RNA: Bacterial RNase P class A
Organism: Mesotoga sp. SC_4PWA21
RNA sequence: GAAGCGAAACGUGUGACCGCGGAAAUUCCGAGGAAAGUCCGGACUCCAUGGGCAGGGGCGCUGGGUAAUACCCAGGGAGAGUGAUCUCCGGAAAGGGCCAUAGAAAAGAAGACCGCCUUAGGGCAAGGAUGGAAAGGUGAAGGUAAGAGCUCACCGGCUGUCGGGCGACCGGCAGGCCUGGUAACCCCCGUCUGGAGCAAGUCCAAGCAGAAAGGGUCUGAGGAUGCCCACCAAAUCCCUUUCGGGUAGGAUGCAAGAGGGCUAUGGUAACAUGGCUCCCAGAUAGAUGGUCACAGUAACAGAAUCCGGCUUACGGUUUCGCUUCCCGU
Numbered sequence: 001g002a003a004g005c006g007a008a009a010c011g012u013g014u015g016a017c018c019g020c021g022g023a024a025a026u027u028c029c030g031a032g033g034a035a036a037g038u039c040c041g042g043a044c045u046c047c048a049u050g051g052g053c054a055g056g057g058g059c060g061c062u063g064g065g066u067a068a069u070a071c072c073c074a075g076g077g078a079g080a081g082u083g084a085u086c087u088c089c090g091g092a093a094a095g096g097g098c099c100a101u102a103g104a105a106a107a108g109a110a111g112a113c114c115g116c117c118u119u120a121g122g123g124c125a126a127g128g129a130u131g132g133a134a135a136g137g138u139g140a141a142g143g144u145a146a147g148a149g150c151u152c153a154c155c156g157g158c159u160g161u162c163g164g165g166c167g168a169c170c171g172g173c174a175g176g177c178c179u180g181g182u183a184a185c186c187c188c189c190g191u192c193u194g195g196a197g198c199a200a201g202u203c204c205a206a207g208c209a210g211a212a213a214g215g216g217u218c219u220g221a222g223g224a225u226g227c228c229c230a231c232c233a234a235a236u237c238c239c240u241u242u243c244g245g246g247u248a249g250g251a252u253g254c255a256a257g258a259g260g261g262c263u264a265u266g267g268u269a270a271c272a273u274g275g276c277u278c279c280c281a282g283a284u285a286g287a288u289g290g291u292c293a294c295a296g297u298a299a300c301a302g303a304a305u306c307c308g309g310c311u312u313a314c315g316g317u318u319u320c321g322c323u324u325c326c327c328g329u
Stems, first nucleotide, its partner, number of pairs: 001325010011314001012295007020030004035312003039309005044197004051229002056193005061075005076089005090188002095186002097182003113128002115124003136155005142150001157177001158175007201252004212242005222232002259278008